[Rfam]
RNA sequence: AGGACCAUAGCUCAGUUGGUUAGAGCGCAUCCUUGACAUGGAUGAGGUCGGCGGUUCGAAUCCGCCUGGUCCUA
Numbered sequence: 001a002g003g004a005c006c007a008u009a010g011c012u013c014a015g016u017u018g019g020u021u022a023g024a025g026c027g028c029a030u031c032c033u034u035g036a037c038a039u040g041g042a043u044g045a046g047g048u049c050g051g052c053g054g055u056u057c058g059a060a061u062c063c064g065c066c067u068g069g070u071c072c073u074a
Stems, first nucleotide, its partner, number of pairs: 001073007010026004028044005050066005
RNA: tRNA
Organism: Kineobactrum sediminis